Notes:
Rfam assigns this 163-nucleotide sequence from Thalassotalea euphylliae to the family "TPP riboswitch aptamer (THI element)". Gene Ontology term of the family: thiamine pyrophosphate binding. Taxonomically the source falls in Thalassotalea (Bacteria, Pseudomonadati, Pseudomonadota, Colwelliaceae).
RNA sequence: GCGAAAACCAAGGGGUGCGGGUAUAUCGAAAUUACUUUUAGUAAUGUAUACCUGCUGAGAUUGCUGGCUUCUCACAUUGUUUUGUUUACAUUGUGUUGAAAGUGCAGAACCCUUAUUACCUGAUCCGGUUAAUACUGGCGUAGGGAUGGUUAGCACAUCAUAU
Numbered sequence: 001g002c003g004a005a006a007a008c009c010a011a012g013g014g015g016u017g018c019g020g021g022u023a024u025a026u027c028g029a030a031a032u033u034a035c036u037u038u039u040a041g042u043a044a045u046g047u048a049u050a051c052c053u054g055c056u057g058a059g060a061u062u063g064c065u066g067g068c069u070u071c072u073c074a075c076a077u078u079g080u081u082u083u084g085u086u087u088a089c090a091u092u093g094u095g096u097u098g099a100a101a102g103u104g105c106a107g108a109a110c111c112c113u114u115a116u117u118a119c120c121u122g123a124u125c126c127g128g129u130u131a132a133u134a135c136u137g138g139c140g141u142a143g144g145g146a147u148g149g150u151u152a153g154c155a156c157a158u159c160a161u162a163u
Stems, first nucleotide, its partner, number of pairs: 006151005011113004016107001017055010062106003119144004125138004